[Rfam]
RNA sequence: CCCUCCCACAAAGAUGUGGUUUUUGUUCCCUGUCCCUGGACACAUAAAAUUUGGAAGCAAAGAAAGGCAGAUUUGGAGAAAUCUGGGGCCAGCUUGCUCCCCACAGGCUUGAGAUGAACCAUGGCACAGAG
Numbered sequence: 001c002c003c004u005c006c007c008a009c010a011a012a013g014a015u016g017u018g019g020u021u022u023u024u025g026u027u028c029c030c031u032g033u034c035c036c037u038g039g040a041c042a043c044a045u046a047a048a049a050u051u052u053g054g055a056a057g058c059a060a061a062g063a064a065a066g067g068c069a070g071a072u073u074u075g076g077a078g079a080a081a082u083c084u085g086g087g088g089c090c091a092g093c094u095u096g097c098u099c100c101c102c103a104c105a106g107g108c109u110u111g112a113g114a115u116g117a118a119c120c121a122u123g124g125c126a127c128a129g130a131g
Stems, first nucleotide, its partner, number of pairs: 002057001004055003015044004020039002025029001071122001073121001091109006
Small nucleolar RNA SNORA38: a 131-nucleotide RNA from Nannospalax galili.
It is annotated as an H/ACA-box small nucleolar RNA.
ACA38 is a member of the H/ACA class of snoRNA that guide the sites of modification of uridines to pseudouridines.
Gene Ontology terms of the family: RNA processing, Cajal body and nucleolus.
Taxonomically the source falls in Nannospalax (Eukaryota, Craniata, Vertebrata, Eutheria).
The family's consensus secondary structure was predicted with RNAfold.